RNA sequence: ACACGCGUGGCGGGCGGCAGCUCCGCUGUUCCUAACCCUAAUCGGGGAUAAUCGAUGGCGCCGUCGCCGCGCUCCGUCCGUCCGCCCGCUGUUUUACUCGCUGACUUUCAGCGGGCGAUUGGAGCCGCCCCAGGGGGAGGAGGGAGGCGGGAGGGGAUCGGGGCGCCCCGGCGGUGGGGAUGAGGGGAGGGAGAUUGAGGGAAAAAAAAAAGGGCCGAAAGAGGCUCUGGGACCAUAAAAAAAAACGUCAGCGAGGGGUCCGCUCUGCCCACCCCGCCCUGGGGCUCCCCGCUGUGGUGGCCGCGGUCGGCCGGCACCCGCCAUUGCCGCCGCCAAGAGUUCGCCUCUGUCAGCGCCCGGCGGCGCGCGGGACGAGCAGCGCGCGGCCCCGCGUCCCCAGCAGAAUAAACGGGAGCGGCGACCCCGGGAUCCGAACCCGGGAUCAACCCCCCGCGUCCCCUGUAACGUGGGGCAGGCGGACGGCGUCGCUCCCACACGC
Numbered sequence: 001a002c003a004c005g006c007g008u009g010g011c012g013g014g015c016g017g018c019a020g021c022u023c024c025g026c027u028g029u030u031c032c033u034a035a036c037c038c039u040a041a042u043c044g045g046g047g048a049u050a051a052u053c054g055a056u057g058g059c060g061c062c063g064u065c066g067c068c069g070c071g072c073u074c075c076g077u078c079c080g081u082c083c084g085c086c087c088g089c090u091g092u093u094u095u096a097c098u099c100g101c102u103g104a105c106u107u108u109c110a111g112c113g114g115g116c117g118a119u120u121g122g123a124g125c126c127g128c129c130c131c132a133g134g135g136g137g138a139g140g141a142g143g144g145a146g147g148c149g150g151g152a153g154g155g156g157a158u159c160g161g162g163g164c165g166c167c168c169c170g171g172c173g174g175u176g177g178g179g180a181u182g183a184g185g186g187g188a189g190g191g192a193g194a195u196u197g198a199g200g201g202a203a204a205a206a207a208a209a210a211a212g213g214g215c216c217g218a219a220a221g222a223g224g225c226u227c228u229g230g231g232a233c234c235a236u237a238a239a240a241a242a243a244a245a246c247g248u249c250a251g252c253g254a255g256g257g258g259u260c261c262g263c264u265c266u267g268c269c270c271a272c273c274c275c276g277c278c279c280u281g282g283g284g285c286u287c288c289c290c291g292c293u294g295u296g297g298u299g300g301c302c303g304c305g306g307u308c309g310g311c312c313g314g315c316a317c318c319c320g321c322c323a324u325u326g327c328c329g330c331c332g333c334c335a336a337g338a339g340u341u342c343g344c345c346u347c348u349g350u351c352a353g354c355g356c357c358c359g360g361c362g363g364c365g366c367g368c369g370g371g372a373c374g375a376g377c378a379g380c381g382c383g384c385g386g387c388c389c390c391g392c393g394u395c396c397c398c399a400g401c402a403g404a405a406u407a408a409a410c411g412g413g414a415g416c417g418g419c420g421a422c423c424c425c426g427g428g429a430u431c432c433g434a435a436c437c438c439g440g441g442a443u444c445a446a447c448c449c450c451c452c453g454c455g456u457c458c459c460c461u462g463u464a465a466c467g468u469g470g471g472g473c474a475g476g477c478g479g480a481c482g483g484c485g486u487c488g489c490u491c492c493c494a495c496a497c498g499c
Stems, first nucleotide, its partner, number of pairs: 005277003009273002012270006020259004071125005083117009100252006106245003279400006287371001288367001290365005303333004308329004313322003336348004413491008422482001451479004457472004
Shown here is a 499-nucleotide RNA from Coturnix japonica, a member of the family "Vertebrate telomerase RNA". The literature on the family includes a 2005 paper in J Biol Chem by Fragnet et al., "Comparative functional study of the viral telomerase RNA based on natural mutations". Telomerase is a ribonucleoprotein reverse transcriptase that synthesises telomeric DNA. Telomerase RNAs differ greatly in sequence and structure between vertebrates, ciliates and yeasts, but they share a 5' pseudoknot structure close to the template sequence. Vertebrate telomerase RNAs have a 3' H/ACA snoRNA-like domain. The family's RNA type in Rfam is non-coding RNA gene. The family is grouped with related families in Rfam's "Telomerase clan". NCBI's taxonomy places the organism under Eukaryota, Craniata, Dinosauria, Coelurosauria, Coturnix.